[Rfam]
RNA: MIR1509 microRNA precursor family
RNA sequence: UGAUUCAUUUCAUCUUUUUAAUCAAGGAAAUCACAGUUGAGAGUGAGACUUGAGUUCUCCUGUUCUCUUUCUCUACUGUGUUUCCUUGGUUAAAAGGAUGCGCUGGAUCA
Numbered sequence: 001u002g003a004u005u006c007a008u009u010u011c012a013u014c015u016u017u018u019u020a021a022u023c024a025a026g027g028a029a030a031u032c033a034c035a036g037u038u039g040a041g042a043g044u045g046a047g048a049c050u051u052g053a054g055u056u057c058u059c060c061u062g063u064u065c066u067c068u069u070u071c072u073c074u075a076c077u078g079u080g081u082u083u084c085c086u087u088g089g090u091u092a093a094a095a096g097g098a099u100g101c102g103c104u105g106g107a108u109c110a
Stems, first nucleotide, its partner, number of pairs: 001110007011100003016095015032080006039073003